[Rfam]
RNA sequence: GAGCGCAUUGGAAGCUGUAAUCUAGGGGCGGCAGCGUG
Numbered sequence: 001g002a003g004c005g006c007a008u009u010g011g012a013a014g015c016u017g018u019a020a021u022c023u024a025g026g027g028g029c030g031g032c033a034g035c036g037u038g
Stems, first nucleotide, its partner, number of pairs: 008025005